[Rfam]
RNA sequence: AGCGCCGCUAAAGAACAUGGCCUUUAGCGGCGUUUUUUGGUAAAGCGCCGCUAAAGGCCAUGUUCUUUAGCGGCGCUU
Numbered sequence: 001a002g003c004g005c006c007g008c009u010a011a012a013g014a015a016c017a018u019g020g021c022c023u024u025u026a027g028c029g030g031c032g033u034u035u036u037u038u039g040g041u042a043a044a045g046c047g048c049c050g051c052u053a054a055a056g057g058c059c060a061u062g063u064u065c066u067u068u069a070g071c072g073g074c075g076c077u078u
Base pairs, nucleotide, nucleotide: 003075004074005073006072007071008070009069010068011067012066013065014064015063016062017061018060019059020058021057022056023055024054025053026052027051028050029049030048031047032046033045